[Rfam]
RNA sequence: GGUCUGUGAUGAAUAGUAAAAGGUCUGAUUGUCCCGAGACUCGCUCUUCUCUGACCUCUUCUCCCAGCAGUUUCUCUCCAGUCAUGGCACAGUGAUGGUGUGACUGGCAGAGUGUUUGCUGACAGCUUGUGAUGUGUUCAGUUCACGUUAACCUGAAGCACUGGAGACAUGACUGUGAUCAACAUCCAACAGACCUGCCUGAAGGAGUUUGGGGUUUUGGGUUGUUAUAUCUGGACAUAUGAUCUGACUUUUCUGCUGAGACC
Numbered sequence: 001g002g003u004c005u006g007u008g009a010u011g012a013a014u015a016g017u018a019a020a021a022g023g024u025c026u027g028a029u030u031g032u033c034c035c036g037a038g039a040c041u042c043g044c045u046c047u048u049c050u051c052u053g054a055c056c057u058c059u060u061c062u063c064c065c066a067g068c069a070g071u072u073u074c075u076c077u078c079c080a081g082u083c084a085u086g087g088c089a090c091a092g093u094g095a096u097g098g099u100g101u102g103a104c105u106g107g108c109a110g111a112g113u114g115u116u117u118g119c120u121g122a123c124a125g126c127u128u129g130u131g132a133u134g135u136g137u138u139c140a141g142u143u144c145a146c147g148u149u150a151a152c153c154u155g156a157a158g159c160a161c162u163g164g165a166g167a168c169a170u171g172a173c174u175g176u177g178a179u180c181a182a183c184a185u186c187c188a189a190c191a192g193a194c195c196u197g198c199c200u201g202a203a204g205g206a207g208u209u210u211g212g213g214g215u216u217u218u219g220g221g222u223u224g225u226u227a228u229a230u231c232u233g234g235a236c237a238u239a240u241g242a243u244c245u246g247a248c249u250u251u252u253c254u255g256c257u258g259a260g261a262c263c
Stems, first nucleotide, its partner, number of pairs: 001263004037245003041241001045220002061207004065121006078107009129187001131186005144171002147168003152163001

Description
The family of this 263-nucleotide RNA sequence from Penelope pileata is "Small Cajal body specific RNA 6". It scores 118 bits against the family's covariance model. Rfam's curators write: U88 is small Cajal body specific RNA (scaRNA). scaRNAs are a novel class of small nuclear RNAs which localise to the Cajal bodies. On this family, see Darzacq et al., EMBO J 2002: "Cajal body-specific small nuclear RNAs: a novel class of 2'-O-methylation and pseudouridylation guide RNAs". The family's consensus secondary structure is taken from published work.